[Rfam]
RNA sequence: CAGUAGAUGCACCCUGAUGGCUUCCCGUUCGAUGCGAGCGGGAUUUUUUUU
Dot-bracket structure: ..((......))..........(((((((((...)))))))))........
Shown here is a 51-nucleotide RNA sequence from Oxynema aestuarii, a member of the family "Nitrogen stress-induced RNA 1". For this family Rfam cites "Heterocyst-specific transcription of NsiR1, a non-coding RNA encoded in a tandem array of direct repeats in cyanobacteria" (Ionescu et al., J Mol Biol, 2010). The pairing is the family consensus, mapped onto this sequence. It scores 42 bits against the family's covariance model.